[Rfam]
RNA sequence: AGGUGAUAUCUCCUUACCUUUACUAAUGGAGAUACUCGAUCAUUCUGUGGGUAUUUAAAGAUACCUUAGACGCUUGUCGUCGCUAGUGUGGUGUGAGGAGGGGUUGAAUGCCCA
Numbered sequence: 001a002g003g004u005g006a007u008a009u010c011u012c013c014u015u016a017c018c019u020u021u022a023c024u025a026a027u028g029g030a031g032a033u034a035c036u037c038g039a040u041c042a043u044u045c046u047g048u049g050g051g052u053a054u055u056u057a058a059a060g061a062u063a064c065c066u067u068a069g070a071c072g073c074u075u076g077u078c079g080u081c082g083c084u085a086g087u088g089u090g091g092u093g094u095g096a097g098g099a100g101g102g103g104u105u106g107a108a109u110g111c112c113c114a
Stems, first nucleotide, its partner, number of pairs: 001019004007034007035097004039092005045086002049066007069081004101113004
RNA: epsC RNA